[Rfam]
RNA sequence: AUGAGAAGUAAUAGUUAACCCCAUAUAAUCUAAAGAAUUGGCUUUGGAGUCUCUACCUAGCACCUUAAUGCUAGACUAUGCGGGAAAUCUUUUGAGUG
Numbered sequence: 001a002u003g004a005g006a007a008g009u010a011a012u013a014g015u016u017a018a019c020c021c022c023a024u025a026u027a028a029u030c031u032a033a034a035g036a037a038u039u040g041g042c043u044u045u046g047g048a049g050u051c052u053c054u055a056c057c058u059a060g061c062a063c064c065u066u067a068a069u070g071c072u073a074g075a076c077u078a079u080g081c082g083g084g085a086a087a088u089c090u091u092u093u094g095a096g097u098g
Stems, first nucleotide, its partner, number of pairs: 019083002022080004029048007057074006
The family of this 98-nucleotide sequence from Lysinibacillus alkalisoli is "Purine riboswitch aptamer".
The source organism's lineage runs through Bacteria, Bacilli, Caryophanales, Bacillaceae and Lysinibacillus.